[Rfam]
RNA sequence: UUGCGUUAUCAAGAGCGGUGCACUUCCGUGCACCCGGCAACCUGGGGUGGACACCCAAGGUGCUUUCCUACUUUGUAGGGAUAUGGCUGAGGUCUACGACCAAAGCAACAAAGUG
Numbered sequence: 001u002u003g004c005g006u007u008a009u010c011a012a013g014a015g016c017g018g019u020g021c022a023c024u025u026c027c028g029u030g031c032a033c034c035c036g037g038c039a040a041c042c043u044g045g046g047g048u049g050g051a052c053a054c055c056c057a058a059g060g061u062g063c064u065u066u067c068c069u070a071c072u073u074u075g076u077a078g079g080g081a082u083a084u085g086g087c088u089g090a091g092g093u094c095u096a097c098g099a100c101c102a103a104a105g106c107a108a109c110a111a112a113g114u115g
Stems, first nucleotide, its partner, number of pairs: 007083004015035001017034007036064003041060003044056003052115002086106003
Shown here is a 115-nucleotide sequence, a member of the family "SAM-I/IV (S-adenosyl methionine) riboswitch aptamer".
Its Rfam clan is "SAM clan".